[Rfam]
RNA sequence: GAGCACAGUGAACACCCAAGGAUGCUACUAUGGCUCCCCUUGGUCUUUUGUAUCUGUGCUACAGUAACUCUGAUCUGUUCCUCUGCAUUAGGAGAGCUCUUUCCUCCCCUACAUGUAUUCAGCGGAUCAGAAUAAAC
Numbered sequence: 001g002a003g004c005a006c007a008g009u010g011a012a013c014a015c016c017c018a019a020g021g022a023u024g025c026u027a028c029u030a031u032g033g034c035u036c037c038c039c040u041u042g043g044u045c046u047u048u049u050g051u052a053u054c055u056g057u058g059c060u061a062c063a064g065u066a067a068c069u070c071u072g073a074u075c076u077g078u079u080c081c082u083c084u085g086c087a088u089u090a091g092g093a094g095a096g097c098u099c100u101u102u103c104c105u106c107c108c109c110u111a112c113a114u115g116u117a118u119u120c121a122g123c124g125g126a127u128c129a130g131a132a133u134a135a136a137c
Stems, first nucleotide, its partner, number of pairs: 003059006010053001013050002016043005024034003061076001063074001065072002083122003086115003090110003094106003
A member of the RNA family "Small nucleolar RNA SNORA22" from Sphaeramia orbicularis, 137 nucleotides long.
It is annotated as an H/ACA-box small nucleolar RNA.